[Rfam]
RNA: Bacillaceae-1 RNA
RNA sequence: UAAGGCGGAUGUUCGAUUAAAUACGGCACGUCGUGUGCCAACAUCGAACGACCUCACUUCCUGUGUG
Numbered sequence: 001u002a003a004g005g006c007g008g009a010u011g012u013u014c015g016a017u018u019a020a021a022u023a024c025g026g027c028a029c030g031u032c033g034u035g036u037g038c039c040a041a042c043a044u045c046g047a048a049c050g051a052c053c054u055c056a057c058u059u060c061c062u063g064u065g066u067g
Stems, first nucleotide, its partner, number of pairs: 011049007025039005053067001055065003